[Rfam]
RNA sequence: ACGCUGGCCGCAUGUUCGCUGGCGUUGCCGGCAGCAUGCCCAGGCAGUCGAGACCUUCGAGACUGCGGCGCGGUUCGCCGUGCUGGUUGCUUCGUUCUCCGGGCGCACCCGCGUCCAUCCACCUCACCCUCAAGGGAUCGACCUCCCUUGAGGGCGGG
Numbered sequence: 001a002c003g004c005u006g007g008c009c010g011c012a013u014g015u016u017c018g019c020u021g022g023c024g025u026u027g028c029c030g031g032c033a034g035c036a037u038g039c040c041c042a043g044g045c046a047g048u049c050g051a052g053a054c055c056u057u058c059g060a061g062a063c064u065g066c067g068g069c070g071c072g073g074u075u076c077g078c079c080g081u082g083c084u085g086g087u088u089g090c091u092u093c094g095u096u097c098u099c100c101g102g103g104c105g106c107a108c109c110c111g112c113g114u115c116c117a118u119c120c121a122c123c124u125c126a127c128c129c130u131c132a133a134g135g136g137a138u139c140g141a142c143c144u145c146c147c148u149u150g151a152g153g154g155c156g157g158g
Stems, first nucleotide, its partner, number of pairs: 011038004015033001018032006044066006052088004067084007122158003129152008

A member of the RNA family "radC RNA" from Luteimonas aestuarii, 158 nucleotides long. The family's RNA type in Rfam is cis-regulatory element. Lineage of the source: Bacteria > Pseudomonadati > Pseudomonadota > Gammaproteobacteria > Luteimonas.